Rfam assigns this 38-nucleotide RNA from Photobacterium profundum to the family "JUMPstart RNA". Rfam 15.1 lists 288 matches to the family in 230 species. The sequence is in the family's curated seed alignment.

RNA sequence: CAGCAUAUUGGGAGCUGCAACCUAAGGGCGGUAGCAUG
Numbered sequence: 001c002a003g004c005a006u007a008u009u010g011g012g013a014g015c016u017g018c019a020a021c022c023u024a025a026g027g028g029c030g031g032u033a034g035c036a037u038g
Stems, first nucleotide, its partner, number of pairs: 008025005
Dot-bracket structure: .......(((((........))))).............